[Rfam]
Shown here is a 116-nucleotide RNA sequence from Neoaquamicrobium microcysteis, a member of the family "Alphaproteobacterial ar14". The family's RNA type in Rfam is small RNA. The pairing is the family consensus, mapped onto this sequence. The family has 118 seed sequences and 784 matches in Rfam 15.1. Gene Ontology term of the family: biological process involved in symbiotic interaction.

RNA sequence: CACUCCUGUCGGUGAUCUACCUCCUCCCAGAGAGCCGACACCCAGCGCGACGAACCUCCUCCCUUGUCGCGCUUCAGAUAGACCCGCCGGACCUCCUCCCCCGGCGGGUUUUUCUU
Numbered sequence: 001c002a003c004u005c006c007u008g009u010c011g012g013u014g015a016u017c018u019a020c021c022u023c024c025u026c027c028c029a030g031a032g033a034g035c036c037g038a039c040a041c042c043c044a045g046c047g048c049g050a051c052g053a054a055c056c057u058c059c060u061c062c063c064u065u066g067u068c069g070c071g072c073u074u075c076a077g078a079u080a081g082a083c084c085c086g087c088c089g090g091a092c093c094u095c096c097u098c099c100c101c102c103g104g105c106g107g108g109u110u111u112u113u114c115u116u
Stems, first nucleotide, its partner, number of pairs: 007040003011036003016031002045072008080111011
Dot-bracket structure: ......(((.(((..((............))..))).)))....((((((((............)))))))).......(((((((((((..........))))))))))).....